[Rfam]
RNA sequence: UCUAACUGAUAUUCCGAAGAGUGGAAUGAAGGGGUAACGCCCGGAAACGCUCACCUGAUACUACGUUGGAGGCGAGGGAGUGCAAUAUCCCAAGCUGACACAGCACGUUGAAGUCGGCUGAGAACCGUCCAAACAGGCUGAAUGCUGAUGUGGAAAGCUGUCCAGAGGUGGAUGGUGCGGUCUAUAGGCCGGGGGUCUAUAAA
Number, nucleotide and partner (000 for none) at each position: 001u000002c000003u000004a000005a000006c000007u000008g000009a000010u000011a000012u000013u000014c000015c000016g000017a000018a000019g052020a051021g050022u049023g048024g000025a000026a000027u000028g000029a000030a000031g000032g042033g041034g040035u000036a000037a000038c000039g000040c034041c033042c032043g000044g000045a000046a000047a000048c023049g022050c021051u020052c019053a000054c194055c193056u192057g000058a000059u000060a000061c000062u000063a108064c107065g106066u105067u100068g099069g000070a000071g096072g095073c094074g000075a000076g091077g090078g089079a088080g000081u000082g000083c000084a000085a000086u000087a000088u079089c078090c077091c076092a000093a000094g073095c072096u071097g000098a000099c068100a067101c000102a000103g000104c000105a066106c065107g064108u063109u000110g000111a000112a000113g000114u000115c191116g190117g189118c188119u187120g000121a000122g000123a000124a181125c180126c179127g178128u177129c153130c152131a151132a000133a000134c000135a000136g146137g145138c000139u000140g000141a000142a000143u000144g000145c137146u136147g000148a000149u000150g000151u131152g130153g129154a000155a000156a000157g176158c175159u174160g173161u172162c171163c170164a169165g000166a000167g000168g000169u164170g163171g162172a161173u160174g159175g158176u157177g128178c127179g126180g125181u124182c000183u000184a000185u000186a000187g119188g118189c117190c116191g115192g056193g055194g054195g000196u000197c000198u000199a000200u000201a000202a000203a000
RNA: Group II catalytic intron D1-D4-5